[Rfam]
The record is a 65-nucleotide RNA from Pristionchus pacificus, which matches "mir-8364 microRNA precursor family" in Rfam.
RNA sequence: UCUUCAUUUCACGCGCUCUCUCACCGGUCAGAGGGACGAGAGAGAGAGUGUGCAAAAUGAAGAGA
Number, nucleotide and partner (000 for none) at each position: 001u063002c062003u061004u060005c059006a058007u057008u000009u000010c000011a000012c052013g051014c050015g049016c048017u047018c000019u045020c044021u043022c042023a000024c000025c000026g000027g000028u000029c000030a000031g000032a000033g000034g000035g000036a000037c000038g000039a000040g000041a000042g022043a021044g020045a019046g000047a017048g016049u015050g014051u013052g012053c000054a000055a000056a000057a007058u006059g005060a004061a003062g002063a001064g000065a000

NCBI's taxonomy places the organism under Eukaryota, Metazoa, Eumetazoa, Rhabditina, Pristionchus.